[Rfam]
RNA: Small Cajal body specific RNA 1
Organism: Microcebus murinus
RNA sequence: AUGUGCUUUAAGAGGUAGAGGAAAGGGGAAGUCAAAGCAGAUGUUCCCUACUCCUGCCUUUGUUAAACACAGCCUUUUAAGAAGUGCAAUAUUAAAACAAAAGCCAUGAGUCUUCUAAGCCCAGUGUGUAAAGAUACACUCUGAGUUAUAACUCAAAGGCACAAUU
Dot-bracket structure: ..((((((.(((.(((((((((..(((((.(((......))).))).))..))....))))))).........))).....))))))...............(((..................((((((....))))))(.(((((....))))).))))......